This 190-nucleotide RNA sequence from Agrilus planipennis belongs to the Rfam family "R2 RNA element". On this family, see Luan et al., Cell 1993: "Reverse transcription of R2Bm RNA is primed by a nick at the chromosomal target site: a mechanism for non-LTR retrotransposition". This family represents the 3' UTR region of the R2 retrotransposable element. This family is known to interact with the R2-encoded reverse transcriptase in a reaction known as target primed reverse transcription (TPRT).
RNA sequence: ACUUUAUUUAUUUAUUAAUUUACCACAGUCUCCUUGUUUACGAUUGGAGAGGACCUUAGUUGGUCCUAGAACGGCCAGAGGUAGAGGGGUUUUAGUCGGUAGGCUCGAGGACUUCUUCCUCGGGAAUCCGACACUACCCACUCGUACGGACAGUUGGGUGUCUUUUGAAGAUUUCCCCUCUUCCACGAAA
Numbered sequence: 001a002c003u004u005u006a007u008u009u010a011u012u013u014a015u016u017a018a019u020u021u022a023c024c025a026c027a028g029u030c031u032c033c034u035u036g037u038u039u040a041c042g043a044u045u046g047g048a049g050a051g052g053a054c055c056u057u058a059g060u061u062g063g064u065c066c067u068a069g070a071a072c073g074g075c076c077a078g079a080g081g082u083a084g085a086g087g088g089g090u091u092u093u094a095g096u097c098g099g100u101a102g103g104c105u106c107g108a109g110g111a112c113u114u115c116u117u118c119c120u121c122g123g124g125a126a127u128c129c130g131a132c133a134c135u136a137c138c139c140a141c142u143c144g145u146a147c148g149g150a151c152a153g154u155u156g157g158g159u160g161u162c163u164u165u166u167g168a169a170g171a172u173u174u175c176c177c178c179u180c181u182u183c184c185a186c187g188a189a190a
Stems, first nucleotide, its partner, number of pairs: 060189002063186002080184002083181002086177003095132005104124008134160001136159005
Gene Ontology term of the family: regulation of reverse transcription. The organism belongs to Agrilus, within Eukaryota.